RNA sequence: UCGUGCUAGGUGGGAAGGUAGCGGUGUCCUGUAACUCGCAAUCCGCUAUAGCGAGGCUGAAUCCCUUCUUGAGGUUUCAGUACUGCAAGGUUUGCCCUAAGUAAGUGGUGAUGACAUUUGGGUUCUGCGCAACGGAAACCCAUGAACCCUGUCAGGUCCGGAAGGAAGCAGCAGUAAGUGGAUCCUUUCGUGUGCCGCAGAGGUGCCUGGAUUGAGCAAACUGCUUAGGUAGCACUUGUGGUUCUUUAAUCAAAGGAAGGUGCACGG
Numbered sequence: 001u002c003g004u005g006c007u008a009g010g011u012g013g014g015a016a017g018g019u020a021g022c023g024g025u026g027u028c029c030u031g032u033a034a035c036u037c038g039c040a041a042u043c044c045g046c047u048a049u050a051g052c053g054a055g056g057c058u059g060a061a062u063c064c065c066u067u068c069u070u071g072a073g074g075u076u077u078c079a080g081u082a083c084u085g086c087a088a089g090g091u092u093u094g095c096c097c098u099a100a101g102u103a104a105g106u107g108g109u110g111a112u113g114a115c116a117u118u119u120g121g122g123u124u125c126u127g128c129g130c131a132a133c134g135g136a137a138a139c140c141c142a143u144g145a146a147c148c149c150u151g152u153c154a155g156g157u158c159c160g161g162a163a164g165g166a167a168g169c170a171g172c173a174g175u176a177a178g179u180g181g182a183u184c185c186u187u188u189c190g191u192g193u194g195c196c197g198c199a200g201a202g203g204u205g206c207c208u209g210g211a212u213u214g215a216g217c218a219a220a221c222u223g224c225u226u227a228g229g230u231a232g233c234a235c236u237u238g239u240g241g242u243u244c245u246u247u248a249a250u251c252a253a254a255g256g257a258a259g260g261u262g263c264a265c266g267g
Stems, first nucleotide, its partner, number of pairs: 001267006009058003012030004017025001019023001035055005064260007073251004080244001082242008093231002097228006105221002108217002116212008124201006130192002133190005138183001140181004149174004157166003
RNA: Bacterial large signal recognition particle RNA
Organism: Shouchella lonarensis